A member of the RNA family "MIR7991 microRNA precursor family" from Solanum tuberosum, 47 nucleotides long. The family has 2 seed sequences and 299 matches in Rfam 15.1. The organism belongs to Solanum, within Eukaryota.

[Rfam]
RNA sequence: AGGAGGUCGGAAUUUUUAAUGAAUUACAAUAAAAACCGACCUCCUGA
Numbered sequence: 001a002g003g004a005g006g007u008c009g010g011a012a013u014u015u016u017u018a019a020u021g022a023a024u025u026a027c028a029a030u031a032a033a034a035a036c037c038g039a040c041c042u043c044c045u046g047a
Stems, first nucleotide, its partner, number of pairs: 001045010013035006020028002

Record summary:
The family's consensus secondary structure was predicted with RNAalifold.